[Rfam]
RNA sequence: ACCCUACAAUUUCCUUUACCAGUGGAUCUACACGCUGGUCUUGGUGGUUGUAAAGGAGGAAAAGGAAGGCUGCAGCUGGGCCCCAGCCUUGCGGUCUGACAUGUAGGCUAGUUUCAAACAGGG
Number, nucleotide and partner (000 for none) at each position: 001a000002c000003c059004c058005u057006a000007c055008a000009a000010u000011u000012u000013c000014c000015u000016u000017u000018a000019c047020c046021a045022g000023u043024g000025g040026a039027u038028c037029u000030a000031c000032a000033c000034g000035c000036u000037g028038g027039u026040c025041u000042u000043g023044g000045u021046g020047g019048u000049u000050g000051u000052a000053a000054a000055g007056g000057a005058g004059g003060a000061a000062a000063a000064g000065g000066a000067a000068g000069g000070c000071u000072g000073c000074a000075g000076c111077u110078g109079g000080g108081c107082c106083c000084c000085a000086g000087c000088c000089u000090u101091g100092c000093g000094g000095u000096c000097u000098g000099a000100c091101a090102u000103g000104u000105a000106g082107g081108c080109u078110a077111g076112u000113u000114u000115c000116a000117a000118a000119c000120a000121g000122g000123g000
Rfam assigns this 123-nucleotide RNA sequence from Octodon degus to the family "Small nucleolar RNA SNORA61". The match comes from Rfam's covariance-model search (79 bits). The base pairs follow the family's consensus structure, which was predicted with PFOLD. Gene Ontology terms of the family: RNA processing and nucleolus. The organism belongs to Octodon, within Eukaryota. About the family: ACA61 is a member of the H/ACA class of snoRNA that guide the sites of modification of uridines to pseudouridines.